[Rfam]
RNA sequence: AUGGCGGAAUCCGAAAAGCCAAAUCUCAAACAGAGUAGGGU
Numbered sequence: 001a002u003g004g005c006g007g008a009a010u011c012c013g014a015a016a017a018g019c020c021a022a023a024u025c026u027c028a029a030a031c032a033g034a035g036u037a038g039g040g041u
Stems, first nucleotide, its partner, number of pairs: 002021004010040003
Source information: The family of this 41-nucleotide RNA sequence is "DUF805b RNA". It is annotated as a cis-regulatory element. The sequence is in the family's curated seed alignment. Pairs were carried over by alignment from the consensus structure, which is taken from published work.